RNA: UnaL2 LINE 3' element
Organism: Gadus morhua
RNA sequence: AAAUAUACUUAUUGUAAGUCGCUUUGGAUAAAAGCGUCUGCUAUAUGCCAGAAA
Numbered sequence: 001a002a003a004u005a006u007a008c009u010u011a012u013u014g015u016a017a018g019u020c021g022c023u024u025u026g027g028a029u030a031a032a033a034g035c036g037u038c039u040g041c042u043a044u045a046u047g048c049c050a051g052a053a054a
Base pairs, nucleotide, nucleotide: 013043014041015040016039020036021035022034023033024032025031